[Rfam]
RNA sequence: AAUGAGGGUUUGGUCACUUUUUCAUUAUAGGUCUUAUGAGGCUUUUUUCUACAACAAAAUAGACUCCAUAAUUCCUACAGUGGUUUUACCCACUACAGAAAUUAUAGAGCC
Numbered sequence: 001a002a003u004g005a006g007g008g009u010u011u012g013g014u015c016a017c018u019u020u021u022u023c024a025u026u027a028u029a030g031g032u033c034u035u036a037u038g039a040g041g042c043u044u045u046u047u048u049c050u051a052c053a054a055c056a057a058a059a060u061a062g063a064c065u066c067c068a069u070a071a072u073u074c075c076u077a078c079a080g081u082g083g084u085u086u087u088a089c090c091c092a093c094u095a096c097a098g099a100a101a102u103u104a105u106a107g108a109g110c111c
Base pairs, nucleotide, nucleotide: 001026002025003024004023005022006021008017009016029044030043031042032041033040062111064109065108066107068105069104070103071102072101073100075098079094080093081092082091083090
Rfam assigns this 111-nucleotide RNA sequence from Granulicatella adiacens to the family "Streptococcus RNA 266". NCBI's taxonomy places the organism under Bacteria, Bacillati, Lactobacillales, Carnobacteriaceae, Granulicatella adiacens.